[Rfam]
Nucleotides: 174
Stems, first nucleotide, its partner, number of pairs: 003172006013043005021032003026140004044132004049128002051124004136166001141163005
Number, partner (000 for none) and nucleotide at each position: 001000c002000g003172c004171u005170c006169a007168u008167c009000c010000a011000g012000a013043g014042g015041g016040g017039c018000a019000g020000a021032g022031g023030g024000a025000c026140a027139c028138g029137g030023c031022c032021c033000g034000u035000u036000g037000a038000a039017g040016c041015c042014c043013c044132g045131g046130c047129a048000a049128c050127c051124c052123u053122c054121c055000c056000g057000c058000g059000c060000u061000a062000c063000c064000a065000g066000u067000u068000g069000a070000c071000u072000g073000c074000g075000a076000c077000g078000u079000u080000c081000u082000c083000c084000u085000c086000c087000a088000c089000g090000u091000u092000u093000u094000c095000c096000g097000u098000g099000g100000a101000g102000c103000g104000g105000a106000a107000a108000g109000c110000g111000a112000a113000g114000c115000c116000g117000g118000c119000g120000c121054g122053g123052g124051g125000c126000a127050g128049g129047u130046g131045c132044c133000a134000a135000u136166u137029c138028c139027g140026u141163c142162c143161c144160g145159g146000g147000c148000g149000a150000a151000a152000u153000a154000c155000g156000u157000g158000a159145c160144c161143g162142g163141g164000g165000a166136a167008g168007a169006u170005g171004a172003g173000g174000a